[Rfam]
RNA: mir-87 microRNA precursor family
Organism: Gongylonema pulchrum
Nucleotides: 076
Base pairs, nucleotide, nucleotide: 002074003073004072005071006070007069008067009066010065011064012063013062014061016059017058018057019056023053024052025051026050028049029048030047
Number, partner (000 for none) and nucleotide at each position: 001000u002074g003073c004072u005071c006070g007069g008067c009066g010065c011064c012063u013062g014061g015000g016059a017058c018057u019056u020000c021000g022000a023053c024052u025051c026050a027000a028049c029048c030047u031000c032000a033000g034000u035000u036000a037000u038000g039000c040000a041000a042000a043000g044000c045000g046000u047030a048029g049028g050026u051025g052024a053023g054000c055000a056019a057018a058017g059016u060000u061014u062013c063012a064011g065010g066009u067008g068000u069007u070006c071005g072004a073003g074002c075000g076000c